RNA sequence: CUUGCACCCAAAACCCAAAGAUUGUUAUCUUGCCAUUGUAACAAUCUUGUCUGGUGUGCACAUAUUAUUAGCACCUUGUCGCCUUUCCAGAGCUGAUGUGCCUGUGAAAGUGAAAUCAAAGGUCCUACAUCU
Number, nucleotide and partner (000 for none) at each position: 001c000002u000003u060004g059005c058006a057007c056008c000009c054010a000011a000012a000013a000014c000015c000016c000017a000018a000019a000020g046021a045022u044023u043024g042025u041026u040027a039028u038029c000030u000031u000032g000033c000034c000035a000036u000037u000038g028039u027040a026041a025042c024043a023044a022045u021046c020047u000048u000049g000050u000051c000052u000053g000054g009055u000056g007057u006058g005059c004060a003061c000062a000063u000064a000065u000066u000067a000068u000069u000070a000071g125072c000073a123074c122075c121076u120077u119078g000079u000080c000081g000082c000083c110084u109085u108086u107087c106088c000089a000090g103091a000092g101093c100094u000095g000096a000097u000098g000099u000100g093101c092102c000103u090104g000105u000106g087107a086108a085109a084110g083111u000112g000113a000114a000115a000116u000117c000118a000119a077120a076121g075122g074123u073124c000125c071126u000127a000128c000129a000130u000131c000132u000
This 132-nucleotide RNA sequence from Xenopus laevis belongs to the Rfam family "Small nucleolar RNA SNORA68". It scores 86 bits against the family's covariance model. U68 is a member of the H/ACA class of small nucleolar RNAs (snoRNAs) which act as guides in the the modification of uridines to pseudouridines. Its family is annotated with nucleolus and RNA processing in the Gene Ontology.